Rfam assigns this 277-nucleotide RNA from Nannospalax galili to the family "Mason-Pfizer monkey virus packaging signal". This family represents a group of sequences that are related to the Mason-Pfizer monkey virus (MPMV) packaging signal. The packaging signal is located in the 5' UTR and is required for specific RNA encapsidation. It scores 159 bits against the family's covariance model.
RNA sequence: UGGUGCCACAACGUGUGGCUUGGAUACUGAGGCAGCAGUGAGGGAGACGACGUGAAAAGGAACGAGUUCGACAAAUUUUGAGACACAUCGGAGCCGCCGUGGGGACCUGCCUUGGCUGAAACCGAAAGUAAGUGGAAACGUCUGAUCAUGGGGCAAGAAUUGAGUCAGCAUGAGCUUUAUGUUAAGCAGUUGAAAGAGGCUUUAAAGACACAGGGAGUAAAGGUUAAAACUACAGAUUUAUUUCAUUUCUUUGAUUUUGUAAAGGAGACUUGUCCCU
Numbered sequence: 001u002g003g004u005g006c007c008a009c010a011a012c013g014u015g016u017g018g019c020u021u022g023g024a025u026a027c028u029g030a031g032g033c034a035g036c037a038g039u040g041a042g043g044g045a046g047a048c049g050a051c052g053u054g055a056a057a058a059g060g061a062a063c064g065a066g067u068u069c070g071a072c073a074a075a076u077u078u079u080g081a082g083a084c085a086c087a088u089c090g091g092a093g094c095c096g097c098c099g100u101g102g103g104g105a106c107c108u109g110c111c112u113u114g115g116c117u118g119a120a121a122c123c124g125a126a127a128g129u130a131a132g133u134g135g136a137a138a139c140g141u142c143u144g145a146u147c148a149u150g151g152g153g154c155a156a157g158a159a160u161u162g163a164g165u166c167a168g169c170a171u172g173a174g175c176u177u178u179a180u181g182u183u184a185a186g187c188a189g190u191u192g193a194a195a196g197a198g199g200c201u202u203u204a205a206a207g208a209c210a211c212a213g214g215g216a217g218u219a220a221a222g223g224u225u226a227a228a229a230c231u232a233c234a235g236a237u238u239u240a241u242u243u244c245a246u247u248u249c250u251u252u253g254a255u256u257u258u259g260u261a262a263a264g265g266a267g268a269c270u271u272g273u274c275c276c277u
Stems, first nucleotide, its partner, number of pairs: 006032002013027003038048002085129002088125002095118001098114002101111002139153001141152004161204003164200003211253007221239005262277001264275003